[Rfam]
RNA sequence: AGGUACUCCCGAGUCUCGCCACGGAUGGCGGUGAUAGGGAUAACGGCUGGUUGGCACAGCCAGCGGUUCACCUGUUCGACCGUAGCGAGGGCAGUUUCGUCCCGCGAGAACAGGCCGUGAACCGCGAACCGUAAUAUCCCAACGCGGUCGGGAACCUUCGCACUUUAGUGCGGGGA
Numbered sequence: 001a002g003g004u005a006c007u008c009c010c011g012a013g014u015c016u017c018g019c020c021a022c023g024g025a026u027g028g029c030g031g032u033g034a035u036a037g038g039g040a041u042a043a044c045g046g047c048u049g050g051u052u053g054g055c056a057c058a059g060c061c062a063g064c065g066g067u068u069c070a071c072c073u074g075u076u077c078g079a080c081c082g083u084a085g086c087g088a089g090g091g092c093a094g095u096u097u098c099g100u101c102c103c104g105c106g107a108g109a110a111c112a113g114g115c116c117g118u119g120a121a122c123c124g125c126g127a128a129c130c131g132u133a134a135u136a137u138c139c140c141a142a143c144g145c146g147g148u149c150g151g152g153a154a155c156c157u158u159c160g161c162a163c164u165u166u167a168g169u170g171c172g173g174g175g176a
Stems, first nucleotide, its partner, number of pairs: 003044002007040004013035003016031006045061005064124006071114007090103002093100001137153004142148002156175008
Annotation
This 176-nucleotide RNA sequence from Natronoarchaeum philippinense belongs to the Rfam family "Sense overlapping transcript RNA 0042 (sot)". A search with the family's covariance model found it, with a score of 140 bits. By type it is a small RNA. NCBI's taxonomy places the organism under Archaea, Methanobacteriota, Halobacteria, Halobacteriales, Natronoarchaeum. For this family Rfam cites "Sense overlapping transcripts in IS1341-type transposase genes are functional non-coding RNAs in archaea" (Gomes-Filho et al., RNA Biol, 2015). About the family: It is associated with IS1341-type transposase (tnpB) genes, at the 3'-end in H. salinarum NRC-1. The tetraloop structural motif may be functional.